A member of the RNA family "U2 spliceosomal RNA" from Bos taurus, 191 nucleotides long.
From the family's description: U2 is a small nuclear RNA (snRNA) component of the spliceosome (involved in pre-mRNA splicing).
Pairs were carried over by alignment from the consensus structure, which is taken from published work.
The match comes from Rfam's covariance-model search (140 bits).
Rfam 15.1 lists 71,512 matches to the family in 2,642 species.
The organism belongs to Bos, within Eukaryota.
Rfam classes the family as a spliceosomal small nuclear RNA.
RNA sequence: AUCGGUUCUGGGCCUUUUGGCUAGUAUCAAGUGUAGUAUCUGUUCUUAUAAGUUUAAUGUCUGAUACGUUCUCUAUCCGAGGACAGUAUAUUUAGUGGACUUUUGGAGCAGGGAGUUGGAAUAGGAGCUCGCUCUGUCCACUCCACGCACUGACUUGGUACUGUAGUACUUCCAGAAACGGUGCACCUCCU
Numbered sequence: 001a002u003c004g005g006u007u008c009u010g011g012g013c014c015u016u017u018u019g020g021c022u023a024g025u026a027u028c029a030a031g032u033g034u035a036g037u038a039u040c041u042g043u044u045c046u047u048a049u050a051a052g053u054u055u056a057a058u059g060u061c062u063g064a065u066a067c068g069u070u071c072u073c074u075a076u077c078c079g080a081g082g083a084c085a086g087u088a089u090a091u092u093u094a095g096u097g098g099a100c101u102u103u104u105g106g107a108g109c110a111g112g113g114a115g116u117u118g119g120a121a122u123a124g125g126a127g128c129u130c131g132c133u134c135u136g137u138c139c140a141c142u143c144c145a146c147g148c149a150c151u152g153a154c155u156u157g158g159u160a161c162u163g164u165a166g167u168a169c170u171u172c173c174a175g176a177a178a179c180g181g182u183g184c185a186c187c188u189c190c191u
Stems, first nucleotide, its partner, number of pairs: 007026001009024001011022004047066003051062002068084006112144005118138002124135004147184006155175004
Dot-bracket structure: ......(.(.((((....)))).).)....................(((.((........)).))).((((((.....))))))...........................(((((.((....((((....)))).)).)))))..((((((..((((.............))))...)))))).......